[Rfam]
RNA sequence: AGGUGUCUGCGGUGCCGCCGGGUCUUAUAUUUCCUUGAACCAAUGCUCAACGAGCACGGGCUUGGUACAUCGCCAGGGGAGCGUGAUCAUCUCGCGUCAGAUGAACCCAACACCUGGCUGCCCUCGCCCACCUGAACCCCCGGUUCAGGAUGAGGGUCCGGUAGCAAAUACCGCAGACACCUA
Numbered sequence: 001a002g003g004u005g006u007c008u009g010c011g012g013u014g015c016c017g018c019c020g021g022g023u024c025u026u027a028u029a030u031u032u033c034c035u036u037g038a039a040c041c042a043a044u045g046c047u048c049a050a051c052g053a054g055c056a057c058g059g060g061c062u063u064g065g066u067a068c069a070u071c072g073c074c075a076g077g078g079g080a081g082c083g084u085g086a087u088c089a090u091c092u093c094g095c096g097u098c099a100g101a102u103g104a105a106c107c108c109a110a111c112a113c114c115u116g117g118c119u120g121c122c123c124u125c126g127c128c129c130a131c132c133u134g135a136a137c138c139c140c141c142g143g144u145u146c147a148g149g150a151u152g153a154g155g156g157u158c159c160g161g162u163a164g165c166a167a168a169u170a171c172c173g174c175a176g177a178c179a180c181c182u183a
Base pairs, nucleotide, nucleotide: 002181003180004179005178006177007176008175009174010173011172012171013170014169017165018164032150033149034148036147037146038145039144040143041142058129059128060127064123065122069119072118073117074116075115076114077113083107088103089102090101091100092099
Rfam assigns this 183-nucleotide RNA from Acidovorax sp. CF316 to the family "6S / SsrS RNA". The base pairs follow the family's consensus structure, which is taken from published work. It scores 47 bits against the family's covariance model. E. coli 6S RNA was the first non coding RNA to be sequenced, but its function was unknown until recently. The family's RNA type in Rfam is non-coding RNA gene.